Rfam assigns this 126-nucleotide RNA sequence from Drosophila mojavensis to the family "U4atac minor spliceosomal RNA". Its family is annotated with spliceosomal tri-snRNP complex assembly, pre-mRNA 5'-splice site binding and U4atac snRNP in the Gene Ontology. Pairs were carried over by alignment from the consensus structure, which is taken from published work. The family has 61 seed sequences and 1,648 matches in Rfam 15.1. U4atac is an essential component of the minor U12-type spliceosome complex which is required for removal of the rarer class of eukaryotic introns (AT-AC, U12-type). The organism belongs to mojavensis species complex, within Eukaryota.
RNA sequence: UCCUUCCUUGUCUUGGGGAGCAGAAAUGUUCAAUGAACGUCUAGUGAGGACAUUGCUGCUGACACCAAUGAUAUAAUAACCCCCGCUCGCUGAUCUCUGCGAUUAGCGUUCGGAAUUUUUGGAAAA
Numbered sequence: 001u002c003c004u005u006c007c008u009u010g011u012c013u014u015g016g017g018g019a020g021c022a023g024a025a026a027u028g029u030u031c032a033a034u035g036a037a038c039g040u041c042u043a044g045u046g047a048g049g050a051c052a053u054u055g056c057u058g059c060u061g062a063c064a065c066c067a068a069u070g071a072u073a074u075a076a077u078a079a080c081c082c083c084c085g086c087u088c089g090c091u092g093a094u095c096u097c098u099g100c101g102a103u104u105a106g107c108g109u110u111c112g113g114a115a116u117u118u119u120u121g122g123a124a125a126a
Base pairs, nucleotide, nucleotide: 005019006018007017008016009015020059021058022057023056025054026053027052028051029050030049031048037045038044082113083112085110090106091105092104093103094102095101